RNA: 6A RNA
RNA sequence: AGAUAUGUUCGUACAGUAGCGAAUAGGGUAAUAAAAAGAAAUACUGACCAAGA
Dot-bracket structure: .....((((((..[[[[..)))))).................]]]].......